[Rfam]
A member of the RNA family "Group II catalytic intron D1-D4-3" from Rheinheimera mesophila, 170 nucleotides long.
RNA sequence: UUCACCGUGAGGUUAAAUCUGAAGGAAGCCGAAAGCAAAAUGCUGGCCUGACGAACAGGAAGCGAUUUAUGCGCUGUAGCAGGGUAAGGUGGCCAAUAUCACCAAAGCCCAAUACUUGCACGGAAUGUUACAACGUAGAGUCGACAGGUAUAAGCAGGAAGGUCGCGCGA
Numbered sequence: 001u002u003c004a005c006c007g008u009g010a011g012g013u014u015a016a017a018u019c020u021g022a023a024g025g026a027a028g029c030c031g032a033a034a035g036c037a038a039a040a041u042g043c044u045g046g047c048c049u050g051a052c053g054a055a056c057a058g059g060a061a062g063c064g065a066u067u068u069a070u071g072c073g074c075u076g077u078a079g080c081a082g083g084g085u086a087a088g089g090u091g092g093c094c095a096a097u098a099u100c101a102c103c104a105a106a107g108c109c110c111a112a113u114a115c116u117u118g119c120a121c122g123g124a125a126u127g128u129u130a131c132a133a134c135g136u137a138g139a140g141u142c143g144a145c146a147g148g149u150a151u152a153a154g155c156a157g158g159a160a161g162g163u164c165g166c167g168c169g170a
Stems, first nucleotide, its partner, number of pairs: 001016002004013003030169002035163002041156004046149005063143004071136003075132007082110004088103004
Taxonomically the source falls in Rheinheimera (Bacteria, Pseudomonadati, Pseudomonadota, Chromatiaceae).